[Rfam]
RNA sequence: GCUAGAUUUAGUGCCGCCUUGUAUGUUUCUAGUUUUUUCCUUUUUGUAUGUAAGGAAAUUACUGUUAUACUUUGGUGGCAGAAAUUU
Numbered sequence: 001g002c003u004a005g006a007u008u009u010a011g012u013g014c015c016g017c018c019u020u021g022u023a024u025g026u027u028u029c030u031a032g033u034u035u036u037u038u039c040c041u042u043u044u045u046g047u048a049u050g051u052a053a054g055g056a057a058a059u060u061a062c063u064g065u066u067a068u069a070c071u072u073u074g075g076u077g078g079c080a081g082a083a084a085u086u087u
Base pairs, nucleotide, nucleotide: 012080013079014078015077016076017075018074021070022069031063032062033061036058038056039055040054041053042052
This 87-nucleotide RNA from Arabis alpina belongs to the Rfam family "Small nucleolar RNA snoR110".
A search with the family's covariance model found it, with a score of 84 bits.
The source organism's lineage runs through Eukaryota, Viridiplantae, Streptophytina, rosids and Arabis.
The family's RNA type in Rfam is H/ACA-box small nucleolar RNA.